[Rfam]
RNA sequence: UGAUACAAGGGUUUCAAAGCCAUGCUUUUCAUGCUUGCAUGAAAAAGCAUGACCUUGAAACCCGAACAAACAUGAGAAUGAAACCCGAUAGGGUGGAAUUCGAAUGUUUGUAGGAUUGCGUGAGCGCAAAGCGCGGAGCAAUCUGUGGUAUCA
Numbered sequence: 001u002g003a004u005a006c007a008a009g010g011g012u013u014u015c016a017a018a019g020c021c022a023u024g025c026u027u028u029u030c031a032u033g034c035u036u037g038c039a040u041g042a043a044a045a046a047g048c049a050u051g052a053c054c055u056u057g058a059a060a061c062c063c064g065a066a067c068a069a070a071c072a073u074g075a076g077a078a079u080g081a082a083a084c085c086c087g088a089u090a091g092g093g094u095g096g097a098a099u100u101c102g103a104a105u106g107u108u109u110g111u112a113g114g115a116u117u118g119c120g121u122g123a124g125c126g127c128a129a130a131g132c133g134c135g136g137a138g139c140a141a142u143c144u145g146u147g148g149u150a151u152c153a
Stems, first nucleotide, its partner, number of pairs: 001153006010062004016056002019053001021051008029042005066111008076101004083094004113144007124134004
The record is a 153-nucleotide sequence from Blautia liquoris, which matches "Clostridiales-1 RNA" in Rfam. The family has 194 seed sequences and 1,172 matches in Rfam 15.1. It scores 132 bits against the family's covariance model.